Source information:
mir-541 microRNA precursor family: an 83-nucleotide RNA sequence from Erinaceus europaeus. The literature on the family includes a 2005 paper in BMC Bioinformatics by Sewer et al., "Identification of clustered microRNAs using an ab initio prediction method". The source organism's lineage runs through Eukaryota, Gnathostomata, Euteleostomi, Eutheria and Erinaceus.
[Rfam]
RNA sequence: AAGUCAGGGAAAGGAUUCUGCUGUCGGUCCCACUCCACGACUCGCAGACGGGUGGUGGGCACAGAAUCCAGACUCUGCUUAUG
Number, nucleotide and partner (000 for none) at each position: 001a082002a000003g080004u000005c077006a076007g075008g074009g073010a000011a000012a000013g069014g068015a067016u066017u065018c064019u063020g062021c000022u061023g060024u059025c058026g000027g056028u000029c000030c055031c054032a053033c052034u051035c050036c000037a000038c000039g000040a000041c000042u000043c000044g000045c000046a000047g000048a000049c000050g035051g034052g033053u032054g031055g030056u027057g000058g025059g024060c023061a022062c020063a019064g018065a017066a016067u015068c014069c013070a000071g000072a000073c009074u008075c007076u006077g005078c000079u000080u003081a000082u001083g000